The record is a 52-nucleotide sequence from Catagonus wagneri, which matches "mir-1302 microRNA precursor family" in Rfam. A reference for the family is Morin et al. (2008), "Application of massively parallel sequencing to microRNA profiling and discovery in human embryonic stem cells", Genome Res.
RNA sequence: AUUUUAGUAUAAAUAUGUCCCAUGUAAUAUUUGGAAUAUUCUUAUACUAAAA
Numbered sequence: 001a002u003u004u005u006a007g008u009a010u011a012a013a014u015a016u017g018u019c020c021c022a023u024g025u026a027a028u029a030u031u032u033g034g035a036a037u038a039u040u041c042u043u044a045u046a047c048u049a050a051a052a
Stems, first nucleotide, its partner, number of pairs: 006048007015039002018036001020034002022031001
Notes: The family's consensus secondary structure was predicted with WAR.